[Rfam]
RNA: Legionella RNA 69
Organism: Legionella shakespearei
RNA sequence: AGACAGCGUUAUCGCGCUUCCUCAGUCCGAACGGAUCGAGGUAAACACUGGCUCAAACAACUUUCUUAUCCGAAACUCACG
Numbered sequence: 001a002g003a004c005a006g007c008g009u010u011a012u013c014g015c016g017c018u019u020c021c022u023c024a025g026u027c028c029g030a031a032c033g034g035a036u037c038g039a040g041g042u043a044a045a046c047a048c049u050g051g052c053u054c055a056a057a058c059a060a061c062u063u064u065c066u067u068a069u070c071c072g073a074a075a076c077u078c079a080c081g
Base pairs, nucleotide, nucleotide: 002020003019005018006017007016008015009014024053025052026051027050029048035042036041